Shown here is a 43-nucleotide sequence from Equus caballus, a member of the family "Prion pseudoknot". Gene Ontology term of the family: translation. Lineage of the source: Eukaryota > Eumetazoa > Gnathostomata > Laurasiatheria > Equus. Rfam describes the family as follows. This family represents a predicted pseudoknot structure found in prion protein mRNA. It has been suggested that the family has a possible effect in prion protein translation.
[Rfam]
RNA sequence: CCAGGGCGGUGGCGGCUGGGGUCAACCCCAUGGUGGUGGUUGG
Dot-bracket structure: (((.((.....................)).)))..........